Background
Rfam assigns this 84-nucleotide sequence to the family "BsrC". From the family's description: The 301 nucleotide sequence from Kouji Nakamura has been trimmed to a highly conserved ~85 nucleotide long core to form this family.
[Rfam]
RNA sequence: AAAAUUAAAGAAAACCAAAUCCUUUCCUCUUCUCUUCCUUAAGGACCUCUCCAUGCCAGUGUGAAAUCUAAGAUUAAAUAUUAA
Numbered sequence: 001a002a003a004a005u006u007a008a009a010g011a012a013a014a015c016c017a018a019a020u021c022c023u024u025u026c027c028u029c030u031u032c033u034c035u036u037c038c039u040u041a042a043g044g045a046c047c048u049c050u051c052c053a054u055g056c057c058a059g060u061g062u063g064a065a066a067u068c069u070a071a072g073a074u075u076a077a078a079u080a081u082u083a084a
Stems, first nucleotide, its partner, number of pairs: 033064002038059002040055002043052003

For this family Rfam cites "Novel small RNA-encoding genes in the intergenic regions of Bacillus subtilis" (Saito et al., Gene, 2008). Rfam 15.1 lists 572 matches to the family in 553 species. The family's RNA type in Rfam is small RNA. The family's consensus secondary structure was predicted with CMfinder.